[Rfam]
The family of this 45-nucleotide RNA from Granulicella mallensis is "Acido-Lenti-1 RNA". The match comes from Rfam's covariance-model search (50 bits). The family's consensus secondary structure is taken from published work. By type it is a small RNA. Taxonomically the source falls in Granulicella mallensis (Bacteria, Pseudomonadati, Acidobacteriota, Terriglobia).

RNA sequence: CCCAGGGUUUCACCCUGGGCUAUGAUAGGUCGCCCCUUCGGGGCU
Numbered sequence: 001c002c003c004a005g006g007g008u009u010u011c012a013c014c015c016u017g018g019g020c021u022a023u024g025a026u027a028g029g030u031c032g033c034c035c036c037u038u039c040g041g042g043g044c045u
Stems, first nucleotide, its partner, number of pairs: 001019008032044005

The family has 87 seed sequences and 2,607 matches in Rfam 15.1.